[Rfam]
RNA sequence: ACCUGCAUUCGAAAGUGAUUUUGGUCUUCCCUGUGACCUGGUCAUUGAUAGUGCAGGGAGAGGAAUUUGUGAAAGCUUUUCCCGUGUUUGGAGGACUUGCCCUCAUUCCUACCAAACCCUGUAACUUUCUGACA
Dot-bracket structure: .((((((((....(((((((..((((........)))).)))))))...))))))))..........(..(((((..........(((((.((((...........))))..))))).......))))).)...
RNA: Small nucleolar RNA SNORA71